A member of the RNA family "Alphaproteobacteria transfer-messenger RNA" from Pseudovibrio axinellae, 357 nucleotides long. The organism belongs to Pseudovibrio, within Bacteria. A search with the family's covariance model found it, with a score of 291 bits. Bacterial tmRNA, also known as 10Sa RNA or SsrA, is named for its dual tRNA and mRNA-like properties. Its role is to liberate the mRNA from a stalled ribosome. Rfam classes the family as a non-coding RNA gene.
RNA sequence: GCCCUUCCAUUUAUGAAAGCCUGCACCUAUAUUCCCCUCUGCCAGCUUGCUGGCUACGGCAAUAAAUUGUGAGCGCAAUAAACCAUUCGGACCCGGGGGCGGUACCCGGCGCCUCCACCAAAGCCCGUUGUACUCCAGCGGUCUUCGGGGGGGCGAAAUAGGAUCGACGAGGGCGUAAAGGCUUUACUUUUGCUCGGCAUGGUACCACCGAUAUCGGACCACAAUGAUAGUUGCAAAUGACAACUACGCUAUGGACAACGCUGUAGCUGCGUAAUGCAGUUCCGGUAGUCCGCUAAGUCCUGUUGGGUAGCACCUUCGGGCGGGGUUCGGGGGCACCUGGCAACAGAAGCCUCCACU
Numbered sequence: 001g002c003c004c005u006u007c008c009a010u011u012u013a014u015g016a017a018a019g020c021c022u023g024c025a026c027c028u029a030u031a032u033u034c035c036c037c038u039c040u041g042c043c044a045g046c047u048u049g050c051u052g053g054c055u056a057c058g059g060c061a062a063u064a065a066a067u068u069g070u071g072a073g074c075g076c077a078a079u080a081a082a083c084c085a086u087u088c089g090g091a092c093c094c095g096g097g098g099g100c101g102g103u104a105c106c107c108g109g110c111g112c113c114u115c116c117a118c119c120a121a122a123g124c125c126c127g128u129u130g131u132a133c134u135c136c137a138g139c140g141g142u143c144u145u146c147g148g149g150g151g152g153g154c155g156a157a158a159u160a161g162g163a164u165c166g167a168c169g170a171g172g173g174c175g176u177a178a179a180g181g182c183u184u185u186a187c188u189u190u191u192g193c194u195c196g197g198c199a200u201g202g203u204a205c206c207a208c209c210g211a212u213a214u215c216g217g218a219c220c221a222c223a224a225u226g227a228u229a230g231u232u233g234c235a236a237a238u239g240a241c242a243a244c245u246a247c248g249c250u251a252u253g254g255a256c257a258a259c260g261c262u263g264u265a266g267c268u269g270c271g272u273a274a275u276g277c278a279g280u281u282c283c284g285g286u287a288g289u290c291c292g293c294u295a296a297g298u299c300c301u302g303u304u305g306g307g308u309a310g311c312a313c314c315u316u317c318g319g320g321c322g323g324g325g326u327u328c329g330g331g332g333g334c335a336c337c338u339g340g341c342a343a344c345a346g347a348a349g350c351c352u353c354c355a356c357u
Stems, first nucleotide, its partner, number of pairs: 041054005058194005069187002071184004083173002087170003093109005110155007195210003200221003205217002323338004329354006
Dot-bracket structure: ........................................(((((....)))))...(((((......((((((........((..(((...(((((.......)))))(((((((................................)))))))............))).)).......)))).))..)))))[[[..(((..((.]]].....)).))).....................................................................................................[[[[..((((((]]]]..........))))))...